[Rfam]
Nucleotides: 103
Stems, first nucleotide, its partner, number of pairs: 019088007029050003033047003059079006
Number, partner (000 for none) and nucleotide at each position: 001000a002000a003000u004000u005000g006000a007000a008000u009000a010000a011000u012000g013000a014000a015000a016000a017000c018000a019088g020087c021086u022085c023084a024083u025082a026000u027000a028000a029050u030049g031048u032000c033047c034046g035045a036000u037000a038000a039000u040000g041000u042000g043000g044000u045035u046034c047033g048031a049030c050029a051000g052000u053000c054000u055000c056000u057000a058000c059079a060078g061077g062076a063075u064074g065000a066000c067000c068000g069000u070000a071000a072000a073000a074064u075063a076062u077061c078060c079059u080000a081000c082025u083024a084023u085022g086021a087020g088019u089000g090000a091000a092000a093000g094000u095000g096000u097000a098000u099000c100000u101000a102000g103000g